[Rfam]
RNA: tRNA
Organism: Candidatus Similichlamydia laticola
RNA sequence: GGGGACUUAGCUCAUUUGGUAGAGCACCUGAUUUGCAUUCAGGGGGUGAGGAGUUCGAGUCUCCUAGUCUCCA
Numbered sequence: 001g002g003g004g005a006c007u008u009a010g011c012u013c014a015u016u017u018g019g020u021a022g023a024g025c026a027c028c029u030g031a032u033u034u035g036c037a038u039u040c041a042g043g044g045g046g047u048g049a050g051g052a053g054u055u056c057g058a059g060u061c062u063c064c065u066a067g068u069c070u071c072c073a
Stems, first nucleotide, its partner, number of pairs: 001072007010025004027043005049065005